Rfam assigns this 87-nucleotide RNA sequence from Burkholderiales bacterium PBB3 to the family "DUF3800-VII RNA". The family's RNA type in Rfam is small RNA. The source organism's lineage runs through Bacteria, Pseudomonadati, Pseudomonadota, Betaproteobacteria and Burkholderiales. The base pairs follow the family's consensus structure, which is taken from published work.
RNA sequence: CGCAGGCAAGCGCAAGGUUUGUAGAGGCCAGUGGCAACACUGGCAGCCCGAAUGGGUGGGACACUCGAACUUGGGGCCUGCAUUUUU
Numbered sequence: 001c002g003c004a005g006g007c008a009a010g011c012g013c014a015a016g017g018u019u020u021g022u023a024g025a026g027g028c029c030a031g032u033g034g035c036a037a038c039a040c041u042g043g044c045a046g047c048c049c050g051a052a053u054g055g056g057u058g059g060g061a062c063a064c065u066c067g068a069a070c071u072u073g074g075g076g077c078c079u080g081c082a083u084u085u086u087u
Stems, first nucleotide, its partner, number of pairs: 002081006011074001013073004022068001024066003027044007047056003